A member of the RNA family "Mammalian CPEB3 ribozyme" from Alligator mississippiensis, 77 nucleotides long. A reference for the family is Salehi-Ashtiani et al. (2006), "A genomewide search for ribozymes reveals an HDV-like sequence in the human CPEB3 gene", Science. Pairs were carried over by alignment from the consensus structure, which is taken from published work. It scores 53 bits against the family's covariance model.

RNA sequence: UAACACAAGUUUGAGGCCAUAGUAGAAGCACUCAGAGUGCAGCCCUGUCAGAUUCCAAUUAAUCUGCGAAUUCUGCU
Numbered sequence: 001u002a003a004c005a006c007a008a009g010u011u012u013g014a015g016g017c018c019a020u021a022g023u024a025g026a027a028g029c030a031c032u033c034a035g036a037g038u039g040c041a042g043c044c045c046u047g048u049c050a051g052a053u054u055c056c057a058a059u060u061a062a063u064c065u066g067c068g069a070a071u072u073c074u075g076c077u
Stems, first nucleotide, its partner, number of pairs: 013045001015044003021077007028040003049066006